Nucleotides: 122
Base pairs, nucleotide, nucleotide: 003053004052005051006050007049010046011045012044026041027040028039029038067115068114069113070112074108075107076106077105086101087100088099
Number, partner (000 for none) and nucleotide at each position: 001000u002000g003053g004052u005051c006050a007049u008000u009000a010046c011045c012044a013000a014000g015000g016000c017000u018000u019000u020000u021000a022000g023000a024000a025000u026041g027040c028039a029038g030000c031000u032000u033000c034000u035000c036000a037000u038029u039028u040027g041026c042000u043000a044012u045011g046010g047000a048000c049007a050006u051005g052004a053003u054000c055000a056000c057000a058000a059000a060000a061000u062000a063000u064000u065000u066000u067115c068114c069113c070112a071000u072000u073000a074108g075107g076106u077105u078000g079000u080000u081000u082000u083000u084000u085000c086101u087100g088099c089000u090000a091000c092000g093000u094000u095000g096000g097000u098000a099088g100087c101086a102000u103000u104000c105077a106076g107075c108074u109000u110000a111000u112070u113069g114068g115067g116000a117000a118000c119000a120000u121000u122000u

A member of the RNA family "Small nucleolar RNA SNORA32" from Molossus molossus, 122 nucleotides long. A search with the family's covariance model found it, with a score of 127 bits. The base pairs follow the family's consensus structure, which was predicted with RNAfold. Rfam links the family to the GO terms RNA processing and nucleolus. The organism belongs to Molossus, within Eukaryota. Rfam's curators write: ACA32 is a member of the H/ACA class of snoRNA that guide the sites of modification of uridines to pseudouridines. Rfam classes the family as an H/ACA-box small nucleolar RNA.